[Rfam]
RNA sequence: UUGGUUUGUCUUAAGUCAGACUUGUUCAAUUUUAGUCAAGUUUAUAGAAAAAAUAUAACAAUAUUUAUACUAUCAAAUAUAUACAAUAUCAAUAUAUUUCAUGGUGAAUUCGAUGCAACAAAUUUGAUAUUGUAGAUGUUGUUAUAUUUUUCUAUAAACUUGGACAAAGUUAAAAAAAAUUGACUUAGGAUAAACCAAA
Numbered sequence: 001u002u003g004g005u006u007u008g009u010c011u012u013a014a015g016u017c018a019g020a021c022u023u024g025u026u027c028a029a030u031u032u033u034a035g036u037c038a039a040g041u042u043u044a045u046a047g048a049a050a051a052a053a054u055a056u057a058a059c060a061a062u063a064u065u066u067a068u069a070c071u072a073u074c075a076a077a078u079a080u081a082u083a084c085a086a087u088a089u090c091a092a093u094a095u096a097u098u099u100c101a102u103g104g105u106g107a108a109u110u111c112g113a114u115g116c117a118a119c120a121a122a123u124u125u126g127a128u129a130u131u132g133u134a135g136a137u138g139u140u141g142u143u144a145u146a147u148u149u150u151u152c153u154a155u156a157a158a159c160u161u162g163g164a165c166a167a168a169g170u171u172a173a174a175a176a177a178a179a180u181u182g183a184c185u186u187a188g189g190a191u192a193a194a195c196c197a198a199a
Stems, first nucleotide, its partner, number of pairs: 005194005011188008020180001022178002025175002031168003035165002045154008056144003060140010073127006